[Rfam]
RNA sequence: GUACAAUGAUGACAAACUUAGGACACCUUUGUAGGCAACGACCAAUGAAAACAACACAUAUUCGGAGUACG
Numbered sequence: 001g002u003a004c005a006a007u008g009a010u011g012a013c014a015a016a017c018u019u020a021g022g023a024c025a026c027c028u029u030u031g032u033a034g035g036c037a038a039c040g041a042c043c044a045a046u047g048a049a050a051a052c053a054a055c056a057c058a059u060a061u062u063c064g065g066a067g068u069a070c071g
Base pairs, nucleotide, nucleotide: 001070002069003068004067